[Rfam]
RNA: RNase MRP
Organism: Bucco capensis
RNA sequence: GGAUGUUCUGAAGACCUGCUCGCUAGGCUAUGCACAGAGAACGGUAAGUUUCUCAUGGGCCCUCGUCGGCCGCCUAGGGGAAAGUCCCCGGACCGCUGGCAGAGAGUGCCAGGUGCUGUUGGCGCCAUUACCCCCCAGCACCUCACAGCAGCCGCCGCCGAGACGCCCUGGGGCCGAGCGGUGUGAACGCGUGGGCGGGCGCUCGUCACGGCUACAGACACGCAGGUAGUGCGUAAGCGCACUAACAGAACGGGGCUCACUCUCAGGCCAUC
Numbered sequence: 001g002g003a004u005g006u007u008c009u010g011a012a013g014a015c016c017u018g019c020u021c022g023c024u025a026g027g028c029u030a031u032g033c034a035c036a037g038a039g040a041a042c043g044g045u046a047a048g049u050u051u052c053u054c055a056u057g058g059g060c061c062c063u064c065g066u067c068g069g070c071c072g073c074c075u076a077g078g079g080g081a082a083a084g085u086c087c088c089c090g091g092a093c094c095g096c097u098g099g100c101a102g103a104g105a106g107u108g109c110c111a112g113g114u115g116c117u118g119u120u121g122g123c124g125c126c127a128u129u130a131c132c133c134c135c136c137a138g139c140a141c142c143u144c145a146c147a148g149c150a151g152c153c154g155c156c157g158c159c160g161a162g163a164c165g166c167c168c169u170g171g172g173g174c175c176g177a178g179c180g181g182u183g184u185g186a187a188c189g190c191g192u193g194g195g196c197g198g199g200c201g202c203u204c205g206u207c208a209c210g211g212c213u214a215c216a217g218a219c220a221c222g223c224a225g226g227u228a229g230u231g232c233g234u235a236a237g238c239g240c241a242c243u244a245a246c247a248g249a250a251c252g253g254g255g256c257u258c259a260c261u262c263u264c265a266g267g268c269c270a271u272c
Stems, first nucleotide, its partner, number of pairs: 002272004007267005014227006023077006037054005083257002086255004098110004112126005129199001131197001134194002138190002143186004155181004165174003229242005